[Rfam]
RNA sequence: CGCCACACCUCGGGGUGCCGUCACGGCUGAGAUGCGUAUGCGAACCCGUUGAACCUGACCCGGUUAAGACCGGCGGAGGGAAGGUCCGACGUCACGUC
Dot-bracket structure: ......((((((((.(((((...))))......((....)))..)))).....(((...((((......))))...)))..)))).............
The record is a 98-nucleotide RNA from Jannaschia seohaensis, which matches "TPP riboswitch aptamer (THI element)" in Rfam.